About this RNA: Rfam assigns this 237-nucleotide RNA from a Rickettsiales bacterium to the family "permuted transfer-messenger RNA". By type it is a non-coding RNA gene. Rfam's curators put it in the seed alignment. Pairs were carried over by alignment from the consensus structure, which is taken from published work. For this family Rfam cites "Variations on the tmRNA gene" (Mao et al., RNA Biol, 2010).

RNA sequence: AACGAUAAACGCUUUUUGUAAUAGAUAUUUUGGACCCGGGGGCGGUACCCGGCACCUCCACCAUAAAAUUAAGGGGGUGACAUAGUUUCGACAGGAUAUUGAAAGAAUUAGUUUUCGUUCAGGCUGACUAGCCUGGUUGGCAAUAGCCAAUAAAUCAUCAAUUUUAUAAUUGCAAACGAUAAUUUUGCAGUGGCUGCGAAUGAUAAUUUCGCAGUUGAGUAUGCAGCUGCAGCUUAA
Numbered sequence: 001a002a003c004g005a006u007a008a009a010c011g012c013u014u015u016u017u018g019u020a021a022u023a024g025a026u027a028u029u030u031u032g033g034a035c036c037c038g039g040g041g042g043c044g045g046u047a048c049c050c051g052g053c054a055c056c057u058c059c060a061c062c063a064u065a066a067a068a069u070u071a072a073g074g075g076g077g078u079g080a081c082a083u084a085g086u087u088u089c090g091a092c093a094g095g096a097u098a099u100u101g102a103a104a105g106a107a108u109u110a111g112u113u114u115u116c117g118u119u120c121a122g123g124c125u126g127a128c129u130a131g132c133c134u135g136g137u138u139g140g141c142a143a144u145a146g147c148c149a150a151u152a153a154a155u156c157a158u159c160a161a162u163u164u165u166a167u168a169a170u171u172g173c174a175a176a177c178g179a180u181a182a183u184u185u186u187g188c189a190g191u192g193g194c195u196g197c198g199a200a201u202g203a204u205a206a207u208u209u210c211g212c213a214g215u216u217g218a219g220u221a222u223g224c225a226g227c228u229g230c231a232g233c234u235u236a237a
Base pairs, nucleotide, nucleotide: 001119002118003117004116005115016107017106026098027097028096030094031093032092036052037051038050039049040048053079054078055077056076057075058074059073120135121134122133123132